[Rfam]
RNA sequence: GGGCGGCGUGGACGCGAUGAUCACAGCCCCGUGCGCGGUCGCUUGGGUUUGCGGGAGCAAGUAGCGAGACCGGCCACGUGCCU
Dot-bracket structure: (((((.(((((..[[......[.[[[.[[.......(((((((..]].]]].]...]]....)))))..))..))))))))))
Notes
The record is an 83-nucleotide RNA sequence, which matches "c-di-GMP-II-GAG riboswitch aptamer" in Rfam. Clan: c-di-GMP_II riboswitch clan. The literature on the family includes a 2017 paper in Proc Natl Acad Sci U S A by Weinberg et al., "Bioinformatic analysis of riboswitch structures uncovers variant classes with altered ligand specificity". Its family is annotated with cyclic-di-GMP binding and regulation of gene expression in the Gene Ontology.